[Rfam]
RNA sequence: CGCAGAGUAGAUUUGUGUGCGUUAAGUGCCGGCUGAACAGGGAGUUGUCAAUCGGACGAAAAGGCGGAAGCCUUGCGGUACACAUUUCGCAUCCCGCUGCA
Numbered sequence: 001c002g003c004a005g006a007g008u009a010g011a012u013u014u015g016u017g018u019g020c021g022u023u024a025a026g027u028g029c030c031g032g033c034u035g036a037a038c039a040g041g042g043a044g045u046u047g048u049c050a051a052u053c054g055g056a057c058g059a060a061a062a063g064g065c066g067g068a069a070g071c072c073u074u075g076c077g078g079u080a081c082a083c084a085u086u087u088c089g090c091a092u093c094c095c096g097c098u099g100c101a
Base pairs, nucleotide, nucleotide: 002100003099004098005097010088011087014084015083016082017081018080019079020077021076022075026057027056029055030054031053032052034050035049036048040094041093042092044090061074062073063072064071